[Rfam]
Shown here is a 310-nucleotide sequence from Rhizophagus sp. MUCL 43196, a member of the family "Nuclear RNase P".
Rfam's curators write: Ribonuclease P (RNase P) is a ubiquitous endoribonuclease, found in archaea, bacteria and eukarya as well as chloroplasts and mitochondria. Its best characterised activity is the generation of mature 5'-ends of tRNAs by cleaving the 5'-leader elements of precursor-tRNAs. Cellular RNase Ps are ribonucleoproteins. RNA from bacterial RNase Ps retains its catalytic activity in the absence of the protein subunit, i.e. it is a ribozyme. Isolated eukaryotic and archaeal RNase P RNA has not been shown to retain its catalytic function, but is still essential for the catalytic activity of the holoenzyme. Although the archaeal and eukaryotic holoenzyme s have a much greater protein content than the bacterial ones, the RNA cores from all the three lineages are homologous -- helices corresponding to P1, P2, P3, P4, and P10/11 are common to all cellular RNase P RNAs. Yet, there is considerable sequence variation, particularly among the eukaryotic RNAs.
It scores 103 bits against the family's covariance model.
Taxonomically the source falls in Rhizophagus (Eukaryota, Fungi, Glomerales, Glomeraceae).

RNA sequence: UGAACGGAAAGCUUGUGUUAGGGGUAAACAUACGGACAAUGAAAUAUAUUUCUUUAGUCCUUUUUAAAUAACCCUUGGGAAGGUCUGAGAAAAACUAAUCAAGUCUCUAACUGGGACAUUCACGAGAGUGAGUAAUGAAUAACCAGAAAUGACAUCCUCUUUGAUUCAAAAUAUGAAGUUUUCAAAACUGAUUUUAAUUGGAUCAAUUGAGUAUUUAAACAUGAUUCAUUAGUGGAAGUUCUAUGAAGCGCAAUACACAAGACAUCACAAUAUUCGUGAUAUAACUCAAUUCAGACUACUCUUCCGUUCG
Numbered sequence: 001u002g003a004a005c006g007g008a009a010a011g012c013u014u015g016u017g018u019u020a021g022g023g024g025u026a027a028a029c030a031u032a033c034g035g036a037c038a039a040u041g042a043a044a045u046a047u048a049u050u051u052c053u054u055u056a057g058u059c060c061u062u063u064u065u066a067a068a069u070a071a072c073c074c075u076u077g078g079g080a081a082g083g084u085c086u087g088a089g090a091a092a093a094a095c096u097a098a099u100c101a102a103g104u105c106u107c108u109a110a111c112u113g114g115g116a117c118a119u120u121c122a123c124g125a126g127a128g129u130g131a132g133u134a135a136u137g138a139a140u141a142a143c144c145a146g147a148a149a150u151g152a153c154a155u156c157c158u159c160u161u162u163g164a165u166u167c168a169a170a171a172u173a174u175g176a177a178g179u180u181u182u183c184a185a186a187a188c189u190g191a192u193u194u195u196a197a198u199u200g201g202a203u204c205a206a207u208u209g210a211g212u213a214u215u216u217a218a219a220c221a222u223g224a225u226u227c228a229u230u231a232g233u234g235g236a237a238g239u240u241c242u243a244u245g246a247a248g249c250g251c252a253a254u255a256c257a258c259a260a261g262a263c264a265u266c267a268c269a270a271u272a273u274u275c276g277u278g279a280u281a282u283a284a285c286u287c288a289a290u291u292c293a294g295a296c297u298a299c300u301c302u303u304c305c306g307u308u309c310g
Base pairs, nucleotide, nucleotide: 001310002309003308004307007304008303009302012261013260014259015258016257017256018255020076021075022074023073024072035059036058037057039055085294086293087292088291089290094233095232096231097230103117104116105115106114107113118133119132120131121130122129123128135229136228137227138226139225140224154212155211262282264280265279266278267277268276
Dot-bracket structure: ((((..(((..(((((((.(((((..........(((.(...............).)))............)))))........[[[[[....((((.....(((((.....)))))((((((....)))))).((((((.............((.......................................................))...........)))))))))).....................)))))))(.(((((.......))))).).......]]]]].......)))..))))